[Rfam]
RNA sequence: GCGCGUCUAGCUCAGUUGGCAGAGCGCAAGGCUCUUAACCUUGUGGUCCUGGGUUUGAGCCCUAGGGUGGGCA
Numbered sequence: 001g002c003g004c005g006u007c008u009a010g011c012u013c014a015g016u017u018g019g020c021a022g023a024g025c026g027c028a029a030g031g032c033u034c035u036u037a038a039c040c041u042u043g044u045g046g047u048c049c050u051g052g053g054u055u056u057g058a059g060c061c062c063u064a065g066g067g068u069g070g071g072c073a
Stems, first nucleotide, its partner, number of pairs: 001072002004069004010025004027043005049065005

This 73-nucleotide RNA sequence from Ipomoea nil belongs to the Rfam family "tRNA". It is annotated as a transfer RNA. The family's consensus secondary structure is taken from published work.